[Rfam]
RNA: c-di-AMP riboswitch aptamer (ydaO/yuaA leader)
RNA sequence: UGAAUCAUCGUGCCGAAUUUUCGAGGAGAAAAACGGGGGAACCAUACCGGGUGAAUGAAUCUUGCAAGAGAGGAUUCUAGGGAACCUUCAACCGAACCCACAGCUAACUUCGUAGGCAUCCGAAGGGAGAAGCA
Numbered sequence: 001u002g003a004a005u006c007a008u009c010g011u012g013c014c015g016a017a018u019u020u021u022c023g024a025g026g027a028g029a030a031a032a033a034c035g036g037g038g039g040a041a042c043c044a045u046a047c048c049g050g051g052u053g054a055a056u057g058a059a060u061c062u063u064g065c066a067a068g069a070g071a072g073g074a075u076u077c078u079a080g081g082g083a084a085c086c087u088u089c090a091a092c093c094g095a096a097c098c099c100a101c102a103g104c105u106a107a108c109u110u111c112g113u114a115g116g117c118a119u120c121c122g123a124a125g126g127g128a129g130a131a132g133c134a
Base pairs, nucleotide, nucleotide: 011118012117013116014115018032019031020030021029022028033113034112035111036110037109038108049099050098051097057077058076059075060074061073062072080093081092